[Rfam]
RNA sequence: ACACGAGAAGGGAGGUGGUUCGGCAGAUGUAUGACAGUCGGACGCGUGAGGUGACUGCGGCCUAGGGCCGAGUCUCCGCAUCAGCGCGGUUUGCCGGCCCAGCCGGCCAAUCCCAAGCAGUCACCCGACCCGCGGGCCGCCGGUAACGUCCGGCCGGCUCCCCCGGCCGCCGCCAGGCGGCGGGGGAACCAGGCCCGCGGGUUGUCCGUU
Number, nucleotide and partner (000 for none) at each position: 001a000002c000003a000004c000005g000006a000007g000008a000009a000010g000011g000012g000013a000014g000015g058016u057017g056018g055019u054020u000021c000022g000023g000024c000025a000026g000027a000028u000029g000030u000031a000032u000033g000034a000035c000036a000037g000038u000039c000040g000041g000042a000043c000044g000045c000046g000047u000048g000049a000050g000051g000052u000053g000054a019055c018056u017057g016058c015059g000060g107061c106062c105063u000064a000065g104066g000067g103068c102069c000070g100071a000072g098073u097074c096075u000076c000077c000078g000079c000080a000081u000082c000083a000084g000085c000086g000087c000088g000089g000090u000091u000092u000093g000094c000095c000096g074097g073098c072099c000100c070101a000102g068103c067104c065105g062106g061107c060108c000109a000110a000111u000112c000113c000114c000115a000116a000117g000118c000119a000120g000121u000122c000123a000124c000125c000126c204127g203128a202129c201130c200131c199132g198133c197134g196135g195136g194137c193138c192139g158140c157141c156142g155143g154144u153145a000146a000147c000148g000149u000150c000151c000152g000153g144154c143155c142156g141157g140158c139159u000160c000161c000162c000163c000164c000165g000166g000167c000168c000169g000170c000171c000172g000173c000174c000175a000176g000177g000178c000179g000180g000181c000182g000183g000184g000185g000186g000187a000188a000189c000190c000191a000192g138193g137194c136195c135196c134197g133198c132199g131200g130201g129202u128203u127204g126205u000206c000207c000208g000209u000210u000
RNA: Actinobacteria sRNA Ms_IGR-5